[Rfam]
RNA sequence: CCAGCAUUCCCAGGUAAUCCAAGUUGUCCUACAAAAAACCCUUGGGUUAGACAUAGGGGGGUAUGG
Numbered sequence: 001c002c003a004g005c006a007u008u009c010c011c012a013g014g015u016a017a018u019c020c021a022a023g024u025u026g027u028c029c030u031a032c033a034a035a036a037a038a039c040c041c042u043u044g045g046g047u048u049a050g051a052c053a054u055a056g057g058g059g060g061g062u063a064u065g066g
Base pairs, nucleotide, nucleotide: 001066002065003064006062007061008060009059010058011057015055016054019045020044021043022042023041026032027031